[Rfam]
RNA sequence: AUGCAUCUAGUAGGAAUUGAACUUACGAAUUCGCCAAUUAUGUCUGGGCGCUUUAACCAUUCAGCCAUGGAUGC
Numbered sequence: 001a002u003g004c005a006u007c008u009a010g011u012a013g014g015a016a017u018u019g020a021a022c023u024u025a026c027g028a029a030u031u032c033g034c035c036a037a038u039u040a041u042g043u044c045u046g047g048g049c050g051c052u053u054u055a056a057c058c059a060u061u062c063a064g065c066c067a068u069g070g071a072u073g074c
Stems, first nucleotide, its partner, number of pairs: 003074006010026005040068003044064005050058001

Shown here is a 74-nucleotide RNA from Ricinus communis, a member of the family "Plastid-ycf2 5UTR RNA". Plastid ycf2 is a non-coding RNA (ncRNA) recognised in plastids. It was found in the prime untranslated region (5UTR) of ycf2 genes, it presents a tRNA-like motif which suggests it can be involved in mRNA maturation, particularly involved in defining the precise 5' end of the transcript. The match comes from Rfam's covariance-model search (81 bits). NCBI's taxonomy places the organism under Eukaryota, Tracheophyta, Euphorbiaceae, Acalypheae, Ricinus.